[Rfam]
RNA: Purine riboswitch aptamer
Organism: Culicoidibacter larvae
RNA sequence: AAAGUUACAAUUGAAAAAACUCGUAUAAUCCCUUUAAUAUGGAAAGGGAGUCUCUACCUAGCAACCAUGAAUUGUUAGAUUACGGGGUUACAUUAUUUUGCU
Numbered sequence: 001a002a003a004g005u006u007a008c009a010a011u012u013g014a015a016a017a018a019a020c021u022c023g024u025a026u027a028a029u030c031c032c033u034u035u036a037a038u039a040u041g042g043a044a045a046g047g048g049a050g051u052c053u054c055u056a057c058c059u060a061g062c063a064a065c066c067a068u069g070a071a072u073u074g075u076u077a078g079a080u081u082a083c084g085g086g087g088u089u090a091c092a093u094u095a096u097u098u099u100g101c102u
Base pairs, nucleotide, nucleotide: 018088020086021085022084023083024082025081029049030048031047032046033045034044035043058078059077060076061075062074063073064072